[Rfam]
A member of the RNA family "Small nucleolar RNA SNORA17" from Rattus norvegicus, 132 nucleotides long. On this family, see Ofengand and Bakin, J Mol Biol 1997: "Mapping to nucleotide resolution of pseudouridine residues in large subunit ribosomal RNAs from representative eukaryotes, prokaryotes, archaebacteria, mitochondria and chloroplasts". Its family is annotated with nucleolus and RNA processing in the Gene Ontology. The family's RNA type in Rfam is H/ACA-box small nucleolar RNA. It scores 125 bits against the family's covariance model. Rfam's curators write: snoRNA ACA 17 belongs to the H/ACA family of snoRNAs and is predicted to guide pseudouridylation of the 28S rRNA at positions U4659 and U4598. It shares the same host gene together with ACA43. Pairs were carried over by alignment from the consensus structure, which was predicted with RNAalifold.

RNA sequence: CCUCCCCCAAGAGGCAUUGCAGUUGUGGCUGCUGUGUCACAUGUGUAUCUCUAGGUGGGAGAGGGGUGAGAGGCUAUGUCUAUGCUAAGUGUUCUUACCUGUGAACAUCUGAAUGAUUAAUAGCCUAACAUU
Number, nucleotide and partner (000 for none) at each position: 001c000002c061003u060004c059005c058006c057007c055008c054009a000010a052011g051012a000013g049014g048015c000016a000017u000018u000019g046020c045021a044022g000023u000024u041025g040026u039027g038028g037029c036030u000031g000032c000033u000034g000035u000036g029037u028038c027039a026040c025041a024042u000043g000044u021045g020046u019047a000048u014049c013050u000051c011052u010053a000054g008055g007056u000057g006058g005059g004060a003061g002062a000063g000064g000065g000066g000067u000068g129069a000070g000071a126072g125073g124074c123075u122076a121077u120078g000079u000080c000081u000082a000083u115084g114085c000086u112087a000088a110089g109090u107091g106092u105093u104094c103095u000096u000097a000098c000099c000100u000101g000102u000103g094104a093105a092106c091107a090108u000109c089110u088111g000112a086113a000114u084115g083116a000117u000118u000119a000120a077121u076122a075123g074124c073125c072126u071127a000128a000129c068130a000131u000132u000
Record summary
The organism belongs to Rattus, within Eukaryota.